[Rfam]
RNA sequence: ACCUCAAGGGGGGCUGUGAAUCUCGGCGCGUAAUCGGUCACCUAAGCGCUGAAGGGAGCCAGUGGUGAGACCGCCCCAUCAAGGA
Numbered sequence: 001a002c003c004u005c006a007a008g009g010g011g012g013g014c015u016g017u018g019a020a021u022c023u024c025g026g027c028g029c030g031u032a033a034u035c036g037g038u039c040a041c042c043u044a045a046g047c048g049c050u051g052a053a054g055g056g057a058g059c060c061a062g063u064g065g066u067g068a069g070a071c072c073g074c075c076c077c078a079u080c081a082a083g084g085a
Base pairs, nucleotide, nucleotide: 002084003083004082007079008077009076010075012060013059014058021054023052024051025050026049027048028047036072037071038068039067040066041065042064
RNA: c-di-GMP-II-GAG riboswitch aptamer
Organism: Deinococcus ficus